A member of the RNA family "Archaeal large subunit ribosomal RNA" from Thermoplasma acidophilum, 255 nucleotides of a longer RNA. The base pairs follow the family's consensus structure, which is taken from published work.

RNA sequence: GAGUUCUGACGAGUGGCAAGGUUAAUCCUGAAAGGAGUAGCCGUAGCGAAAGCAACUACCCGCACAGCAAUGGGGGGGUGGCGUGGUAAACGCGUUUAGUCACUCGUGAGAGACCCGAAGCCGGUCGAUCUACACCUGAGUAGGUUGAAGCUCAGUGAAAGCUGGGUGGAGGACCGAACCUAUUCUGAUGUGCAAAUCGUUUGGAUGACUUGGGUGUAGGGGUUAAAGGCCAAUCUAGGCCGGCAAUAGCGGGUU
Numbered sequence: 001g002a003g004u005u006c007u008g009a010c011g012a013g014u015g016g017c018a019a020g021g022u023u024a025a026u027c028c029u030g031a032a033a034g035g036a037g038u039a040g041c042c043g044u045a046g047c048g049a050a051a052g053c054a055a056c057u058a059c060c061c062g063c064a065c066a067g068c069a070a071u072g073g074g075g076g077g078g079u080g081g082c083g084u085g086g087u088a089a090a091c092g093c094g095u096u097u098a099g100u101c102a103c104u105c106g107u108g109a110g111a112g113a114c115c116c117g118a119a120g121c122c123g124g125u126c127g128a129u130c131u132a133c134a135c136c137u138g139a140g141u142a143g144g145u146u147g148a149a150g151c152u153c154a155g156u157g158a159a160a161g162c163u164g165g166g167u168g169g170a171g172g173a174c175c176g177a178a179c180c181u182a183u184u185c186u187g188a189u190g191u192g193c194a195a196a197u198c199g200u201u202u203g204g205a206u207g208a209c210u211u212g213g214g215u216g217u218a219g220g221g222g223u224u225a226a227a228g229g230c231c232a233a234u235c236u237a238g239g240c241c242g243g244c245a246a247u248a249g250c251g252g253g254u255u
Stems, first nucleotide, its partner, number of pairs: 005111003009107009020042004026036004046053002058079004065072002082094004114253002117250001121243006130219011141207001143175004150167007179204002182201001185199001187198002221231003
Dot-bracket structure: ....(((.(((((((((..((((..((((...))))..))))...((....))....((((...((....))...))))..((((.....))))....))))))))).)))..((.(...((((((...((((((((((((.((((...(((((((....)))))))....))))...((.(..(.((........))).).))..).))))))))))).(((.....)))......))))))......).))..